[Rfam]
About this RNA
A member of the RNA family "FMN riboswitch aptamer (RFN element)" from Pseudomonas flexibilis, 145 nucleotides long.
RNA sequence: CAACGUUCUCAGGGCGGGGUGAAAUUCCCCACCGGCGGUGAUGGCCUGAAUGGCCCAAGCCCGCGAGCGCCCGCCUUCGGCGGGGUCAGCAGAUCCGGUGUGAUUCCGGAGCCGACGGUAAGAGUCCGGAUGAGAGAGAGCGGGA
Numbered sequence: 001c002a003a004c005g006u007u008c009u010c011a012g013g014g015c016g017g018g019g020u021g022a023a024a025u026u027c028c029c030c031a032c033c034g035g036c037g038g039u040g041a042u043g044g045c046c047u048g049a050a051u052g053g054c055c056c057a058a059g060c061c062c063g064c065g066a067g068c069g070c071c072c073g074c075c076u077u078c079g080g081c082g083g084g085g086u087c088a089g090c091a092g093a094u095c096c097g098g099u100g101u102g103a104u105u106c107c108g109g110a111g112c113c114g115a116c117g118g119u120a121a122g123a124g125u126c127c128g129g130a131u132g133a134g135a136g137a138g139a140g141c142g143g144g145a
Stems, first nucleotide, its partner, number of pairs: 004142007017029003031125002033114002035064004059112002067090002094110005116128003
The base pairs follow the family's consensus structure, which is taken from published work. A search with the family's covariance model found it, with a score of 117 bits.